This 88-nucleotide RNA sequence from Vibrio renipiscarius belongs to the Rfam family "c-di-GMP-I riboswitch aptamer". The family's consensus secondary structure is taken from published work. Taxonomically the source falls in Vibrio (Bacteria, Pseudomonadati, Gammaproteobacteria, Vibrionales). About the family: GEMM was predicted in a large-scale screen for bacterial structured RNA regulatory elements.

RNA sequence: ACACACUAUCGGCAAACCAUUCGAAAGAAUGGGACGCAAAGCUUCCGGUCUAACGAUAAUCAUUAUCUACGAUAGCGGGGCCACCACU
Numbered sequence: 001a002c003a004c005a006c007u008a009u010c011g012g013c014a015a016a017c018c019a020u021u022c023g024a025a026a027g028a029a030u031g032g033g034a035c036g037c038a039a040a041g042c043u044u045c046c047g048g049u050c051u052a053a054c055g056a057u058a059a060u061c062a063u064u065a066u067c068u069a070c071g072a073u074a075g076c077g078g079g080g081c082c083a084c085c086a087c088u
Stems, first nucleotide, its partner, number of pairs: 012037002017032006041081003045078003048073003055067004